[Rfam]
RNA sequence: AUAGGCCUGCGAAUGGCACUGGAAGAAUUCACGGGGUUCUUCGCACUCCCGUGGACUUUGAGUGCCAUCCUCAGAGCCCU
Numbered sequence: 001a002u003a004g005g006c007c008u009g010c011g012a013a014u015g016g017c018a019c020u021g022g023a024a025g026a027a028u029u030c031a032c033g034g035g036g037u038u039c040u041u042c043g044c045a046c047u048c049c050c051g052u053g054g055a056c057u058u059u060g061a062g063u064g065c066c067a068u069c070c071u072c073a074g075a076g077c078c079c080u
Stems, first nucleotide, its partner, number of pairs: 004077001007074003013068006020061001022059001023057001025056001029054006
mir-263 microRNA precursor family: an 80-nucleotide RNA from Tribolium castaneum. Its family is annotated with RISC complex and miRNA-mediated post-transcriptional gene silencing in the Gene Ontology. Rfam 15.1 lists 368 matches to the family in 211 species. The organism belongs to Tribolium, within Eukaryota. Pairs were carried over by alignment from the consensus structure, which was predicted with RNAalifold.